Overview:
This 73-nucleotide RNA sequence from Pontibacter sp. SGAir0037 belongs to the Rfam family "tRNA". The base pairs follow the family's consensus structure, which is taken from published work. Lineage of the source: Bacteria > Pseudomonadati > Bacteroidota > Hymenobacteraceae > Pontibacter. It is annotated as a transfer RNA.
[Rfam]
RNA sequence: UGCGGGGUGGAGCAGUUGGUAGCUCGUUGGGCUCAUAACCCAAAGGUCGCAAGUUCGAGUCUUGUCCCCGCUA
Numbered sequence: 001u002g003c004g005g006g007g008u009g010g011a012g013c014a015g016u017u018g019g020u021a022g023c024u025c026g027u028u029g030g031g032c033u034c035a036u037a038a039c040c041c042a043a044a045g046g047u048c049g050c051a052a053g054u055u056c057g058a059g060u061c062u063u064g065u066c067c068c069c070g071c072u073a
Stems, first nucleotide, its partner, number of pairs: 002071006010025004027043005049065005